[Rfam]
RNA sequence: UUCGCAUGGUGAGGAAAUGAGUUGAUUCUGUCUGAUCUACUGGAUGAGAAAUUCCUCCUACUCAUUCUGA
Numbered sequence: 001u002u003c004g005c006a007u008g009g010u011g012a013g014g015a016a017a018u019g020a021g022u023u024g025a026u027u028c029u030g031u032c033u034g035a036u037c038u039a040c041u042g043g044a045u046g047a048g049a050a051a052u053u054c055c056u057c058c059u060a061c062u063c064a065u066u067c068u069g070a
Stems, first nucleotide, its partner, number of pairs: 006065004029048001032043001

Shown here is a 70-nucleotide RNA from Oryza meyeriana, a member of the family "Small nucleolar RNA Z105". The base pairs follow the family's consensus structure, which was predicted with CMfinder. The source organism's lineage runs through Eukaryota, Mesangiospermae, Petrosaviidae, Oryzoideae and Oryza meyeriana. For this family Rfam cites "The high diversity of snoRNAs in plants: identification and comparative study of 120 snoRNA genes from Oryza sativa" (Chen et al., Nucleic Acids Res, 2003).